This 121-nucleotide RNA from Cariama cristata belongs to the Rfam family "Small nucleolar RNA SNORA69". About the family: U69 is a member of the H/ACA class of small nucleolar RNAs (snoRNAs) which act as guides in the the modification of uridines to pseudouridines. The base pairs follow the family's consensus structure, which was predicted with PFOLD. Lineage of the source: Eukaryota > Bilateria > Aves > Neoaves > Cariama. It scores 54 bits against the family's covariance model.
[Rfam]
RNA sequence: AAAGCAGGCUGCAAUUACAGUGCUUCAUUCUGUGGGAGUACUGCUGAGAGUAACUCUGUUAACGCUGUCUUUGGUUUCACCUAUACAGUGGUGAAACCAUUUGUUCUUAACAUGUACAAGU
Numbered sequence: 001a002a003a004g005c006a007g008g009c010u011g012c013a014a015u016u017a018c019a020g021u022g023c024u025u026c027a028u029u030c031u032g033u034g035g036g037a038g039u040a041c042u043g044c045u046g047a048g049a050g051u052a053a054c055u056c057u058g059u060u061a062a063c064g065c066u067g068u069c070u071u072u073g074g075u076u077u078c079a080c081c082u083a084u085a086c087a088g089u090g091g092u093g094a095a096a097c098c099a100u101u102u103g104u105u106c107u108u109a110a111c112a113u114g115u116a117c118a119a120g121u
Stems, first nucleotide, its partner, number of pairs: 003045002018043009055114001057112006064105001072099010
Dot-bracket structure: ..((.............(((((((((........))))))))))).........(.((((((.(.......((((((((((........)))))))))).....).)))))).).......